A member of the RNA family "S4-Flavobacteria ribosomal protein leader" from Wenyingzhuangia fucanilytica, 33 nucleotides long. The literature on the family includes a 2020 paper in BMC Microbiol by Eckert and Weinberg, "Discovery of 20 novel ribosomal leader candidates in bacteria and archaea".
RNA sequence: AGUUAUCGAAGGACUAAGCCUUAAUUCAUAACU
Number, nucleotide and partner (000 for none) at each position: 001a033002g032003u031004u030005a029006u028007c000008g027009a022010a021011g020012g019013a000014c000015u000016a000017a000018g000019c012020c011021u010022u009023a000024a000025u000026u000027c008028a006029u005030a004031a003032c002033u001
The family's RNA type in Rfam is cis-regulatory leader. Lineage of the source: Bacteria > Bacteroidota > Flavobacteriia > Flavobacteriaceae > Wenyingzhuangia.